[Rfam]
RNA sequence: AAAGUGGCUUACGCUACCGCCAUGGAUUGGUUCAUUGCGGUCUGCUAUGCCUUU
Numbered sequence: 001a002a003a004g005u006g007g008c009u010u011a012c013g014c015u016a017c018c019g020c021c022a023u024g025g026a027u028u029g030g031u032u033c034a035u036u037g038c039g040g041u042c043u044g045c046u047a048u049g050c051c052u053u054u
Base pairs, nucleotide, nucleotide: 001054002053003052006051007050008049010047011046013045014044016041017040018039019038020037022035023034024033025032026031
Rfam assigns this 54-nucleotide RNA sequence from Anabas testudineus to the family "Editing element of GABA-3 exon 9". The literature on the family includes a 2007 paper in RNA by Ohlson et al., "Editing modifies the GABA(A) receptor subunit alpha3". A search with the family's covariance model found it, with a score of 79 bits. It is annotated as a cis-regulatory element. The family's consensus secondary structure is taken from published work.